[Rfam]
Background:
Shown here is a 135-nucleotide RNA from Castor canadensis, a member of the family "small Cajal body-specific RNA 17". About the family: scaRNAs are a specific class of small nuclear RNAs which localise to the Cajal bodies and guide the modification of RNA polymerase II transcribed spliceosomal RNAs U1, U2, U4, U5 and U12.
Nucleotides: 135
Base pairs, nucleotide, nucleotide: 001135002134003133005132006131007130008129009128010127011126012125013124021119022118023117049087050086051085052084053083054082055080060076062074064073065072066071
Number, partner (000 for none) and nucleotide at each position: 001135c002134u003133c004000c005132u006131g007130g008129g009128u010127c011126c012125c013124u014000u015000g016000u017000g018000c019000a020000g021119c022118c023117c024000u025000g026000g027000a028000u029000g030000a031000c032000c033000c034000c035000a036000u037000a038000a039000u040000a041000u042000u043000a044000u045000a046000u047000a048000a049087u050086c051085a052084g053083g054082c055080c056000c057000c058000a059000u060076g061000u062074g063000g064073g065072u066071g067000g068000c069000a070000c071066u072065g073064c074062u075000u076060c077000c078000c079000a080055g081000a082054g083053c084052c085051u086050g087049a088000g089000a090000g091000g092000a093000u094000g095000a096000u097000a098000a099000a100000a101000a102000u103000g104000u105000g106000g107000c108000a109000g110000g111000u112000a113000a114000a115000g116000u117023g118022g119021g120000g121000a122000c123000a124013a125012g126011g127010g128009a129008c130007c131006u132005a133003g134002g135001g

The family's consensus secondary structure is taken from published work. For this family Rfam cites "Guide RNAs with 5' Caps and Novel Box C/D snoRNA-like Domains for Modification of snRNAs in Metazoa" (Tycowski et al., Curr Biol, 2004). It scores 97 bits against the family's covariance model. The source organism's lineage runs through Eukaryota, Gnathostomata, Euteleostomi, Castoridae and Castor.